[Rfam]
RNA sequence: UAAAUUAUCAAAACGAGCAUCAGAACCGAGUGGUCGGAAGUUCGAGCCGAGCGUAGCGAGACAACGUUGCUUUAGCAACGGCCCGUAGGGCGAGGCGUAAGCCGAGUCAUCUUCCUGGGUGCACCA
Numbered sequence: 001u002a003a004a005u006u007a008u009c010a011a012a013a014c015g016a017g018c019a020u021c022a023g024a025a026c027c028g029a030g031u032g033g034u035c036g037g038a039a040g041u042u043c044g045a046g047c048c049g050a051g052c053g054u055a056g057c058g059a060g061a062c063a064a065c066g067u068u069g070c071u072u073u074a075g076c077a078a079c080g081g082c083c084c085g086u087a088g089g090g091c092g093a094g095g096c097g098u099a100a101g102c103c104g105a106g107u108c109a110u111c112u113u114c115c116u117g118g119g120u121g122c123a124c125c126a
Stems, first nucleotide, its partner, number of pairs: 013116001015114003020109001031092002034090002041087001043085002048058002065080006